[Rfam]
RNA sequence: AUGCUCCAUCGCGAUGUAGUUAUUUCAAUCAUAACGUUCUGAUUGAAUGGGCAAUUAUUUAUUGCCCUUUUAUUUUU
Numbered sequence: 001a002u003g004c005u006c007c008a009u010c011g012c013g014a015u016g017u018a019g020u021u022a023u024u025u026c027a028a029u030c031a032u033a034a035c036g037u038u039c040u041g042a043u044u045g046a047a048u049g050g051g052c053a054a055u056u057a058u059u060u061a062u063u064g065c066c067c068u069u070u071u072a073u074u075u076u077u
Base pairs, nucleotide, nucleotide: 026045027044028043029042030041031040047069049067050066051065052064053063054062055061
Dot-bracket structure: .........................((((((........)))))).(.(((((((.....))))))).)........